[Rfam]
RNA sequence: AGGCCUGCAGAGAGAGAAGCAGGGUCUGAUCCCCAGACUCCAUGGCAGCUGUUGAUCAGCUGUUGUCUCUCUCUUUCUCUCCC
Numbered sequence: 001a002g003g004c005c006u007g008c009a010g011a012g013a014g015a016g017a018a019g020c021a022g023g024g025u026c027u028g029a030u031c032c033c034c035a036g037a038c039u040c041c042a043u044g045g046c047a048g049c050u051g052u053u054g055a056u057c058a059g060c061u062g063u064u065g066u067c068u069c070u071c072u073c074u075u076u077c078u079c080u081c082c083c
Stems, first nucleotide, its partner, number of pairs: 010075008019066004024061001026059006034051003
A member of the RNA family "mir-574 microRNA precursor family" from Cnephaeus nilssonii, 83 nucleotides long. Gene Ontology terms of the family: miRNA-mediated post-transcriptional gene silencing and RISC complex. NCBI's taxonomy places the organism under Eukaryota, Metazoa, Eumetazoa, Dipnotetrapodomorpha, Cnephaeus.